The record is a 205-nucleotide RNA sequence from Crypturellus undulatus, which matches "Small nucleolar RNA SNORA73 family" in Rfam. The family is grouped with related families in Rfam's "snR30-U17 clan". The source organism's lineage runs through Eukaryota, Chordata, Teleostomi, Sarcopterygii and Crypturellus.
[Rfam]
RNA sequence: CCAACGAGGACACCCGCAGAAGUCGCUCUCUGCCGGCUCUGUCCGCGUGGCGCGCGGGAGCGCAGGCCCUCGGGCCCGGGACGUCUAUUCCCUUUCCACAACGUUGGAGAUCAAGCCGGGCCUCGCGCUCGCAGCCUGCAUAUUCCUACUGCCUCUCCGAGCCCUCGGGCCGUGACGGAGGGGACAAACCAUGCAGGAAACAGGC
Numbered sequence: 001c002c003a004a005c006g007a008g009g010a011c012a013c014c015c016g017c018a019g020a021a022g023u024c025g026c027u028c029u030c031u032g033c034c035g036g037c038u039c040u041g042u043c044c045g046c047g048u049g050g051c052g053c054g055c056g057g058g059a060g061c062g063c064a065g066g067c068c069c070u071c072g073g074g075c076c077c078g079g080g081a082c083g084u085c086u087a088u089u090c091c092c093u094u095u096c097c098a099c100a101a102c103g104u105u106g107g108a109g110a111u112c113a114a115g116c117c118g119g120g121c122c123u124c125g126c127g128c129u130c131g132c133a134g135c136c137u138g139c140a141u142a143u144u145c146c147u148a149c150u151g152c153c154u155c156u157c158c159g160a161g162c163c164c165u166c167g168g169g170c171c172g173u174g175a176c177g178g179a180g181g182g183g184a185c186a187a188a189c190c191a192u193g194c195a196g197g198a199a200a201c202a203g204g205c
Stems, first nucleotide, its partner, number of pairs: 001107006008044005014036003018029003047099004056092004060086001062084002067078001135197007152183006161170003
Rfam describes the family as follows. U17 (SNORA73A and SNORA73B) also known as E1 belongs to the H/ACA class of small nucleolar RNAs (snoRNAs). Vertebrate U17 is intron-encoded and ranges in length from 200-230 nucleotides, longer than most snoRNAs. By type it is an H/ACA-box small nucleolar RNA. On this family, see Cervelli et al., J Mol Evol 2002: "Comparative Structure Analysis of Vertebrate U17 Small Nucleolar RNA (snoRNA)".